RNA: Selenocysteine transfer RNA
RNA sequence: GAGAGCGGAUGUGGCCCGGUGGCUGCCCUCGUCUUCAAAACGGGUGGGCGCGGUGACGAGCCGCGCCGGUGGGUUCGACCCCCACGCGCUCUC
Numbered sequence: 001g002a003g004a005g006c007g008g009a010u011g012u013g014g015c016c017c018g019g020u021g022g023c024u025g026c027c028c029u030c031g032u033c034u035u036c037a038a039a040a041c042g043g044g045u046g047g048g049c050g051c052g053g054u055g056a057c058g059a060g061c062c063g064c065g066c067c068g069g070u071g072g073g074u075u076c077g078a079c080c081c082c083c084a085c086g087c088g089c090u091c092u093c
Stems, first nucleotide, its partner, number of pairs: 001093007008085001011026006028044005047067005070084004